[Rfam]
RNA sequence: AGAGUUUGGGGCCACAGCAGAAGUGCUCACAGCGUGGCCAUGUCAGAUACCAGCGAAUCUGUGAAUUCUGCU
Dot-bracket structure: .........[[[[..((((((((((.......)))]]]]....(((((.(....).)))))....)))))))
RNA: Mammalian CPEB3 ribozyme
Organism: Alligator sinensis